RNA sequence: GGCUGUCGUGGCCCCAACUUUCAGAAGCCCGAUUAUUCCCCCCGCCCCAACUCAUCUUUGCGUCCCAAUCGGGCCGCACCGCAGUUCAAGGUGCCCGGUUCGAAUCCCGUGGGGGCGUCCAACUCGUGCGGGUAGCCCACGAUGUCUUUCACUUGCGACGCCUUUAAGCAAUGAAGAACACGCUUGAGGGAAGCUGAUUCUGCAGAGGGAUCUUCACCAUGGGGUGGCGGCGCUGGAUCACACCUUUCUGUGGAUUGGUGGGGAGGGCGUGGGGGGCGAGGGUUGUGGCGACUGAAAUAUU
Number, nucleotide and partner (000 for none) at each position: 001g013002g012003c011004u000005g000006u000007c000008g000009u000010g000011g003012c002013c001014c000015c000016a000017a000018c000019u297020u296021u295022c294023a293024g292025a000026a000027g000028c287029c000030c285031g284032a283033u282034u281035a000036u280037u279038c278039c276040c275041c274042c000043c269044g268045c267046c000047c266048c265049a000050a000051c262052u261053c260054a259055u258056c257057u000058u000059u000060g077061c076062g075063u000064c073065c072066c071067a000068a000069u000070c000071g066072g065073g064074c000075c062076g061077c060078a000079c000080c000081g000082c250083a249084g248085u000086u000087c000088a246089a245090g244091g243092u242093g241094c000095c236096c235097g234098g233099u232100u230101c229102g228103a000104a225105u224106c223107c222108c221109g220110u219111g218112g217113g000114g000115g152116c000117g150118u000119c000120c000121a145122a000123c000124u142125c141126g140127u139128g138129c000130g137131g136132g000133u000134a000135g000136c131137c130138c128139a127140c126141g125142a124143u000144g000145u121146c000147u000148u000149u000150c117151a000152c115153u000154u000155g000156c000157g000158a000159c000160g000161c000162c000163u000164u168165u000166a000167a000168g164169c000170a000171a000172u216173g215174a214175a213176g212177a211178a000179c000180a000181c000182g000183c207184u206185u205186g000187a000188g000189g000190g200191a199192a198193g000194c000195u000196g000197a000198u192199u191200c190201u000202g000203c000204a000205g185206a184207g183208g000209g000210a000211u177212c176213u175214u174215c173216a172217c112218c111219a110220u109221g108222g107223g106224g105225u104226g000227g000228c102229g101230g100231c000232g099233c098234u097235g096236g095237a000238u000239c000240a000241c093242a092243c091244c090245u089246u088247u000248c084249u083250g082251u000252g000253g000254a000255u000256u000257g056258g055259u054260g053261g052262g051263g000264a000265g048266g047267g045268c044269g043270u000271g000272g000273g000274g041275g040276g039277c000278g038279a037280g036281g034282g033283u032284u031285g030286u000287g028288g000289c000290g000291a000292c024293u023294g022295a021296a020297a019298u000299a000300u000301u000
RNA: Fungal signal recognition particle RNA